[Rfam]
RNA sequence: AACAAGAGAGAAACAUGUAAGAAAACAAAAAAUAUGUAUCUUUUUCUUUCAAAGAUAUUCUAGCAUGAAGAAGUAUUG
Dot-bracket structure: ((..((((.((....(((.............)))....)).))))..))....((((((((.......)).)))))).
A member of the RNA family "C0299 RNA" from Phyllostomus discolor, 78 nucleotides long.
NCBI's taxonomy places the organism under Eukaryota, Craniata, Gnathostomata, Theria, Phyllostomus.
It is annotated as a small RNA.
About the family: This family consists of a group of Shigella flexneri and Escherichia coli RNA genes which are 78 bases in length and are found between the hlyE and umuD genes. The function of this RNA is unknown.